[Rfam]
RNA sequence: UGACGGGGGCCCGCACAAGCGGUGGAGCAUGUGGUUUAAUUCGACGCAACGCGAAGAACCUUACCGGGGCUUGACAUCUUUCUGACCGCCUGGGAAACCAGGUCUUCUUCCUUCGGGAAGACAGAAAGACAGGUGGUGCAUGGUUGUCGUCAGCUCGUGUCGUGAGAUGUUGGGUUAAGUCCCACAACGAGCGCAACCCUUGUCCUUAUUUGCCAGCCUGUUUACAGGUGCACUUUAAGGAGACUGCCGUAGAUAAUACGGAGGAAGGUGGGGAUGACGUCAAAUCCUCAUGCCCCUUACGUCCCGGGCUACACACGUGCUACAAUGGUCUGUACAAAGGGUGACCAAGGAGCGAUCCGGAGUCAAUCCCAAAAAGCAGGCCCCAGUUCGGAUUGGAGGCUGCAACUCGCCUCCAUGAAGUCGGAAUCGCUAGUAAUCGCGGAUCAGCAUGCCGCGGUGAAUCCGUUCCCGGGCCUUGUACACACCGCCCGUCACACCACGAAAGUUGGCGAUACCUGAAGUUACCAUACCAACCCUUCGGGGAGGAAGGUACCGAGGGUAUGGUCAGCGAUUGGGGUGAAGUCGUAACAAGG
Numbered sequence: 001u002g003a004c005g006g007g008g009g010c011c012c013g014c015a016c017a018a019g020c021g022g023u024g025g026a027g028c029a030u031g032u033g034g035u036u037u038a039a040u041u042c043g044a045c046g047c048a049a050c051g052c053g054a055a056g057a058a059c060c061u062u063a064c065c066g067g068g069g070c071u072u073g074a075c076a077u078c079u080u081u082c083u084g085a086c087c088g089c090c091u092g093g094g095a096a097a098c099c100a101g102g103u104c105u106u107c108u109u110c111c112u113u114c115g116g117g118a119a120g121a122c123a124g125a126a127a128g129a130c131a132g133g134u135g136g137u138g139c140a141u142g143g144u145u146g147u148c149g150u151c152a153g154c155u156c157g158u159g160u161c162g163u164g165a166g167a168u169g170u171u172g173g174g175u176u177a178a179g180u181c182c183c184a185c186a187a188c189g190a191g192c193g194c195a196a197c198c199c200u201u202g203u204c205c206u207u208a209u210u211u212g213c214c215a216g217c218c219u220g221u222u223u224a225c226a227g228g229u230g231c232a233c234u235u236u237a238a239g240g241a242g243a244c245u246g247c248c249g250u251a252g253a254u255a256a257u258a259c260g261g262a263g264g265a266a267g268g269u270g271g272g273g274a275u276g277a278c279g280u281c282a283a284a285u286c287c288u289c290a291u292g293c294c295c296c297u298u299a300c301g302u303c304c305c306g307g308g309c310u311a312c313a314c315a316c317g318u319g320c321u322a323c324a325a326u327g328g329u330c331u332g333u334a335c336a337a338a339g340g341g342u343g344a345c346c347a348a349g350g351a352g353c354g355a356u357c358c359g360g361a362g363u364c365a366a367u368c369c370c371a372a373a374a375a376g377c378a379g380g381c382c383c384c385a386g387u388u389c390g391g392a393u394u395g396g397a398g399g400c401u402g403c404a405a406c407u408c409g410c411c412u413c414c415a416u417g418a419a420g421u422c423g424g425a426a427u428c429g430c431u432a433g434u435a436a437u438c439g440c441g442g443a444u445c446a447g448c449a450u451g452c453c454g455c456g457g458u459g460a461a462u463c464c465g466u467u468c469c470c471g472g473g474c475c476u477u478g479u480a481c482a483c484a485c486c487g488c489c490c491g492u493c494a495c496a497c498c499a500c501g502a503a504a505g506u507u508g509g510c511g512a513u514a515c516c517u518g519a520a521g522u523u524a525c526c527a528u529a530c531c532a533a534c535c536c537u538u539c540g541g542g543g544a545g546g547a548a549g550g551u552a553c554c555g556a557g558g559g560u561a562u563g564g565u566c567a568g569c570g571a572u573u574g575g576g577g578u579g580a581a582g583u584c585g586u587a588a589c590a591a592g593g
Stems, first nucleotide, its partner, number of pairs: 001482002003479003007476007015466002019430005024323001026321008034312002040055004064307007077129002080126005088103006106121006132296002135294004141290002143285003146281001148279002153192006159168003171184004198273004203241006213230001217228003244264002247261005327382007339370003344363002349358003389420001394415007436458007485592001487589001490585002495579004500574003505569006512562005521554001523552004528548001530546002534543002
This 593-nucleotide part of an RNA from an uncultured Atribacterota bacterium belongs to the Rfam family "Bacterial small subunit ribosomal RNA". On this family, see Cannone et al., BMC Bioinformatics 2002: "The comparative RNA web (CRW) site: an online database of comparative sequence and structure information for ribosomal, intron, and other RNAs".